[Rfam]
RNA sequence: CUCGGUCCUCGGUAGUGGCCCUCGGGCCCCGCACAGGCGGGCCCCGCAGGCCUCGAUCGAUGACCGGC
Numbered sequence: 001c002u003c004g005g006u007c008c009u010c011g012g013u014a015g016u017g018g019c020c021c022u023c024g025g026g027c028c029c030c031g032c033a034c035a036g037g038c039g040g041g042c043c044c045c046g047c048a049g050g051c052c053u054c055g056a057u058c059g060a061u062g063a064c065c066g067g068c
Stems, first nucleotide, its partner, number of pairs: 002067006009060005017052004023046004027041003
This 68-nucleotide RNA sequence from Aeromicrobium marinum belongs to the Rfam family "Actino-pnp RNA". The family's consensus secondary structure is taken from published work. A search with the family's covariance model found it, with a score of 60 bits. NCBI's taxonomy places the organism under Bacteria, Actinomycetota, Nocardioidaceae, Aeromicrobium, Aeromicrobium marinum.